[Rfam]
RNA sequence: GCCGAGCUCAGUAAUGUGGGCUUGUAACCCAAAUGGGGGCAUUAAUGUGAUUGGACAUUGGGCUUACUCAAUUAGUUGGGCCAAAUGUGGCUAAUUGCUGGCUUGCCCGUUCCAAGCGGGGAGUUGAGUCACGGGAUCCAAUCGAAAGUAUGGGUUUCAUGACUCUUAAAGUGGGGGGCACUGCGUCAGGCUGGUUUCACAGAGCAACGAAAACCUCCCACUCUAUGCAGUGGAAAGAUAACGAGUCGGUGCCUCCUUGGCUCCAUAAAACUAAAUGGGUUAGCCUUAAUUGAACAAUCACAUUU
Dot-bracket structure: ((((((((((......)))))))....(((....))))))...((((((((((..(((((((((.(.(((.(((((((((((((..(.((.((....((((((((.(..(((((.(((.(((((.((((((.((((((((..(....)..)))))))).))))))(....).(((((....(.(((....(((......)))....))).)..))))).))))).)))..))))).)....)))))))))))).).))))))).....)))))).))).).)))).))).))..)))))))))).

Plant signal recognition particle RNA: a 305-nucleotide sequence from Handroanthus impetiginosus. By type it is a non-coding RNA gene. Pairs were carried over by alignment from the consensus structure, which is taken from published work.